[Rfam]
RNA sequence: CACCCAAUCGUGGCAAUGCGACACAGGGGCGUAAGGCUGGAAUUGGAACAGGGGCCAGCCAGGCGCACAUUGGGGAAGCGCGGGGCCGGUAGUCGGGGGACUGCCGGCCCUUUUUUU
Numbered sequence: 001c002a003c004c005c006a007a008u009c010g011u012g013g014c015a016a017u018g019c020g021a022c023a024c025a026g027g028g029g030c031g032u033a034a035g036g037c038u039g040g041a042a043u044u045g046g047a048a049c050a051g052g053g054g055c056c057a058g059c060c061a062g063g064c065g066c067a068c069a070u071u072g073g074g075g076a077a078g079c080g081c082g083g084g085g086c087c088g089g090u091a092g093u094c095g096g097g098g099g100a101c102u103g104c105c106g107g108c109c110c111u112u113u114u115u116u117u
Base pairs, nucleotide, nucleotide: 003074004073005072006071007070008069010068011067012066013064014063017033018032019031020030035060036059037058038057039056040055043052044051082111083110084109085108086107087106088105089104090103091102092101093100094099